Nucleotides: 087
Base pairs, nucleotide, nucleotide: 001086002085003084004083005082006081007080010027011026012025029057030056031055032054033053063079064078065077066076067075
Number, partner (000 for none) and nucleotide at each position: 001086c002085c003084c004083u005082u006081g007080g008000u009000c010027g011026u012025c013000u014000a015000g016000u017000u018000g019000g020000u021000u022000u023000a024000u025012g026011a027010c028000g029057u030056c031055a032054g033053a034000c035000u036000g037000u038000a039000a040000c041000u042000g043000u044000u045000c046000a047000g048000g049000u050000a051000a052000a053033u054032c055031u056030g057029g058000a059000u060000g061000u062000c063079a064078c065077c066076g067075g068000u069000u070000c071000g072000a073000c074000u075067c076066c077065g078064g079063u080007c081006c082005g083004a084003g085002g086001g087000a